[Rfam]
Nucleotides: 094
Base pairs, nucleotide, nucleotide: 003063004062005061006060007059008058022050023049024048025047026046
Number, partner (000 for none) and nucleotide at each position: 001000c002000c003063c004062c005061c006060c007059g008058a009000g010000g011000g012000g013000c014000g015000c016000u017000g018000c019000a020000a021000g022050c023049c024048c025047g026046g027000c028000c029000c030000g031000c032000g033000c034000a035000a036000c037000g038000c039000g040000g041000a042000c043000c044000c045000g046026c047025c048024g049023g050022g051000a052000u053000c054000a055000g056000g057000c058008u059007c060006g061005g062004g063003g064000c065000c066000g067000g068000g069000u070000u071000c072000c073000u074000g075000a076000a077000c078000a079000a080000c081000c082000g083000c084000g085000c086000c087000c088000g089000u090000u091000g092000a093000c094000c

SAH (S-adenosyl-L-homocysteine) riboswitch aptamer: a 94-nucleotide RNA sequence from Arenimonas composti. The base pairs follow the family's consensus structure, which is taken from published work. For this family Rfam cites "Riboswitches that sense S-adenosylhomocysteine and activate genes involved in coenzyme recycling" (Wang et al., Mol Cell, 2008). Its family is annotated with S-adenosylhomocysteine metabolic process and regulation of gene expression in the Gene Ontology. A search with the family's covariance model found it, with a score of 42 bits.